[Rfam]
This 87-nucleotide RNA from Parashewanella curva belongs to the Rfam family "Group II catalytic intron D1-D4-1".
From the family's description: Group II introns are found in rRNA, tRNA and mRNA of organelles in fungi, plants and protists, and also in mRNA in bacteria.
Pairs were carried over by alignment from the consensus structure.
RNA sequence: CUAGGUUUUCAGUGAUGUAAAUCGAGGGAGACUAAGAAGUCAGCAGAGGGCAUAGUACUUUAGUGAUGUACAAGCUAAGGGAAGGCC
Numbered sequence: 001c002u003a004g005g006u007u008u009u010c011a012g013u014g015a016u017g018u019a020a021a022u023c024g025a026g027g028g029a030g031a032c033u034a035a036g037a038a039g040u041c042a043g044c045a046g047a048g049g050g051c052a053u054a055g056u057a058c059u060u061u062a063g064u065g066a067u068g069u070a071c072a073a074g075c076u077a078a079g080g081g082a083a084g085g086c087c
Base pairs, nucleotide, nucleotide: 001027002026004023005022006021007020008019010017011016040047041046049087050086051085058080059079060078061077062076063075
It scores 65 bits against the family's covariance model. Taxonomically the source falls in Parashewanella (Bacteria, Pseudomonadota, Alteromonadales, Shewanellaceae).